Rfam assigns this 120-nucleotide sequence from Photorhabdus laumondii to the family "RtT RNA". Lineage of the source: Bacteria > Pseudomonadati > Gammaproteobacteria > Morganellaceae > Photorhabdus laumondii subsp. laumondii.

RNA sequence: AGUAAGAACAGUUGGCUUUUAAUCAAUUGGUCGCAGGUUCGAGCCGAGCGAAGCGAGACAACAGCGCGUGAGCGCUGGCCCGCAGCAAAAGAAGUCACAAACAAUGAGAACACUCAAACU
Numbered sequence: 001a002g003u004a005a006g007a008a009c010a011g012u013u014g015g016c017u018u019u020u021a022a023u024c025a026a027u028u029g030g031u032c033g034c035a036g037g038u039u040c041g042a043g044c045c046g047a048g049c050g051a052a053g054c055g056a057g058a059c060a061a062c063a064g065c066g067c068g069u070g071a072g073c074g075c076u077g078g079c080c081c082g083c084a085g086c087a088a089a090a091g092a093a094g095u096c097a098c099a100a101a102c103a104a105u106g107a108g109a110a111c112a113c114u115c116a117a118a119c120u
Stems, first nucleotide, its partner, number of pairs: 010120002012117004017112001027091002031088001038084001040082002045055002062077006
Dot-bracket structure: .........((((((.(.........((..(......(.((...((.......))......((((((....))))))...)).)...).))....................).)))).))

From the family's description: This family represents a bacterial cis-regulatory element known as RtT RNA. The exact function of RtT is unknown although it is thought that it may be involved in changing the cellular response in relation to amino acid starvation.